RNA: Clostridiales-1 RNA
RNA sequence: UGAUACCAGGGUAAAAAGGUCAAGUGCGUUCGGGCUUGCGCGAAAACACACUUGACCUUGGUACCCGCCCAAACAUGAGGAUGCAGCGAUUUACGAAGUAAAUCAGCGAAUCCGAAUGUUUGCAGGAUUGCGAGAGCAGUGUAACUGUGGAGCAAUCCGUGGGUAUCA
Numbered sequence: 001u002g003a004u005a006c007c008a009g010g011g012u013a014a015a016a017a018g019g020u021c022a023a024g025u026g027c028g029u030u031c032g033g034g035c036u037u038g039c040g041c042g043a044a045a046a047c048a049c050a051c052u053u054g055a056c057c058u059u060g061g062u063a064c065c066c067g068c069c070c071a072a073a074c075a076u077g078a079g080g081a082u083g084c085a086g087c088g089a090u091u092u093a094c095g096a097a098g099u100a101a102a103u104c105a106g107c108g109a110a111u112c113c114g115a116a117u118g119u120u121u122g123c124a125g126g127a128u129u130g131c132g133a134g135a136g137c138a139g140u141g142u143a144a145c146u147g148u149g150g151a152g153c154a155a156u157c158c159g160u161g162g163g164u165a166u167c168a
Stems, first nucleotide, its partner, number of pairs: 001168007010065004016059011028047003031042002034039001070122007079113004086107002088104007125158007136148004